[Rfam]
RNA sequence: AAAUCAAAUGAUGAAUUUGGAUUUCAUAUUUCUCACGACGGUCGUCUGAGACACCAUUACAGUGUCAAUGGUGAUUCAAUAAUCCAAUGGUUCUGAUGCUU
Numbered sequence: 001a002a003a004u005c006a007a008a009u010g011a012u013g014a015a016u017u018u019g020g021a022u023u024u025c026a027u028a029u030u031u032c033u034c035a036c037g038a039c040g041g042u043c044g045u046c047u048g049a050g051a052c053a054c055c056a057u058u059a060c061a062g063u064g065u066c067a068a069u070g071g072u073g074a075u076u077c078a079a080u081a082a083u084c085c086a087a088u089g090g091u092u093c094u095g096a097u098g099c100u101u
Base pairs, nucleotide, nucleotide: 001101002100004098052064053063054062
This 101-nucleotide sequence from Jatropha curcas belongs to the Rfam family "Small nucleolar RNA Z161/Z228". Rfam 15.1 lists 630 matches to the family in 214 species. The family's consensus secondary structure was predicted with PFOLD. Its Rfam clan is "SNORD35 clan". Its family is annotated with nucleolus and RNA processing in the Gene Ontology. Lineage of the source: Eukaryota > eudicotyledons > Gunneridae > fabids > Jatropha.